Shown here is a 59-nucleotide sequence from Pseudooceanicola batsensis, a member of the family "terC RNA". The sequence is in the family's curated seed alignment. The family has 129 seed sequences and 1,112 matches in Rfam 15.1. The source organism's lineage runs through Bacteria, Pseudomonadati, Pseudomonadota, Paracoccaceae and Pseudooceanicola batsensis.
RNA sequence: GGUGGUGACCGGGCCCCUCUGGCGGACGUGGCGGCGCGUUCGUGAUGUCGGCACCGAAC
Numbered sequence: 001g002g003u004g005g006u007g008a009c010c011g012g013g014c015c016c017c018u019c020u021g022g023c024g025g026a027c028g029u030g031g032c033g034g035c036g037c038g039u040u041c042g043u044g045a046u047g048u049c050g051g052c053a054c055c056g057a058a059c
Stems, first nucleotide, its partner, number of pairs: 006053002009051004022043008
The family's RNA type in Rfam is cis-regulatory element.